RNA sequence: UAAACAGGUGAGAACCAUUUCAAUCAAGUAGUAUUGUGAUUCAAAUGGUUCUCACAAUGGU
Numbered sequence: 001u002a003a004a005c006a007g008g009u010g011a012g013a014a015c016c017a018u019u020u021c022a023a024u025c026a027a028g029u030a031g032u033a034u035u036g037u038g039a040u041u042c043a044a045a046u047g048g049u050u051c052u053c054a055c056a057a058u059g060g061u
Base pairs, nucleotide, nucleotide: 008055009054010053011052012051013050014049015048016047017046018045019044020043022041023040024039025038026037